[Rfam]
Small nucleolar RNA SNORD25: an 85-nucleotide RNA from Cocos nucifera. The family's RNA type in Rfam is C/D-box small nucleolar RNA. Rfam links the family to the GO terms RNA processing and nucleolus. The base pairs follow the family's consensus structure, which was predicted with PFOLD. A reference for the family is Qu et al. (2001), "Identification of 10 novel snoRNA gene clusters from Arabidopsis thaliana", Nucleic Acids Res.
RNA sequence: GACAACGGUGAUGAGCUUACAGACCUGUAAUGAUUAUUGCGGAGAUGAUCGCAUAAUCAAAGAACAUCUAAGGGACUGAGUUGUC
Dot-bracket structure: .(((((.........................................................................))))).